Shown here is a 132-nucleotide RNA sequence from Psychrobacillus psychrotolerans, a member of the family "FMN riboswitch aptamer (RFN element)". A search with the family's covariance model found it, with a score of 107 bits. Taxonomically the source falls in Psychrobacillus (Bacteria, Bacillota, Bacilli, Bacillaceae). The family's consensus secondary structure is taken from published work.
[Rfam]
RNA sequence: ACUAUCCUUCGGGGUCGGGUGAAAUUCCCAAUCGACAGUAAGAGAGAAAUCUCAAAGCCUGUGAGCCGUAAAACGCAUGAUUUGGUGGAAAUCCAAAGCCGACAGUUAUAGUCUGGAUGGGAGAAGGAGUAG
Numbered sequence: 001a002c003u004a005u006c007c008u009u010c011g012g013g014g015u016c017g018g019g020u021g022a023a024a025u026u027c028c029c030a031a032u033c034g035a036c037a038g039u040a041a042g043a044g045a046g047a048a049a050u051c052u053c054a055a056a057g058c059c060u061g062u063g064a065g066c067c068g069u070a071a072a073a074c075g076c077a078u079g080a081u082u083u084g085g086u087g088g089a090a091a092u093c094c095a096a097a098g099c100c101g102a103c104a105g106u107u108a109u110a111g112u113c114u115g116g117a118u119g120g121g122a123g124a125a126g127g128a129g130u131a132g
Base pairs, nucleotide, nucleotide: 005128006127007126008125009124010123017029018028019027031112032111033101034100035062036061037060038059057099058098067075081097082096083095084094085093103115104114105113